The family of this 182-nucleotide RNA sequence from Kitasatospora acidiphila is "c-di-AMP riboswitch aptamer (ydaO/yuaA leader)". The source organism's lineage runs through Bacteria, Bacillati, Kitasatosporales, Streptomycetaceae and Kitasatospora. The match comes from Rfam's covariance-model search (38 bits). Rfam's curators write: This family represents a conserved RNA structure found upstream of the ydaO and yuaA genes in Bacillus subtilis and related genes in other bacteria.
[Rfam]
RNA sequence: ACCACAGCAUCGCCACGGGCAGGAGCGGGGGACCCAGUAGUGCCGCGACUCUGCUCGCGCGCCCAUGUGGCGUGCGGCGUGCGCCGCGGCUAGGGGUGAGGCCGUCCGCUCCCACGGGCGACGGCCGGGCACAGUGCGGCCCGAACCCGACAGCUAACUCCGCAGGCGUCGCACGAGGAACU
Dot-bracket structure: .((..................)).((((((....(.........................................................)(((.....((((...............))))..((((........))))...))).........))))))...................